[Rfam]
U5 spliceosomal RNA: a 118-nucleotide sequence from Populus trichocarpa.
Pairs were carried over by alignment from the consensus structure, which is taken from published work.
The organism belongs to Populus, within Eukaryota.
Rfam's curators write: U5 RNA is a component of both types of known spliceosome.

RNA sequence: AGCCGUGCGGUAGACACAAAGCGAACUAUUCUUUCGCCUUUUACUAAAGAAUACCGUGUGUUUGCCGCAAAUCACGGCAUACGCUAAUUUUUGAAGGGGUUCUCCGACGGCGAGCCCU
Dot-bracket structure: ..((((.(((((((((((........((((((((...........))))))))...)))))))))))......)))).................(.((((((.........)))))))
Numbered sequence: 001a002g003c004c005g006u007g008c009g010g011u012a013g014a015c016a017c018a019a020a021g022c023g024a025a026c027u028a029u030u031c032u033u034u035c036g037c038c039u040u041u042u043a044c045u046a047a048a049g050a051a052u053a054c055c056g057u058g059u060g061u062u063u064g065c066c067g068c069a070a071a072u073c074a075c076g077g078c079a080u081a082c083g084c085u086a087a088u089u090u091u092u093g094a095a096g097g098g099g100u101u102c103u104c105c106g107a108c109g110g111c112g113a114g115c116c117c118u
Stems, first nucleotide, its partner, number of pairs: 003077004008067011027053008095118001097117006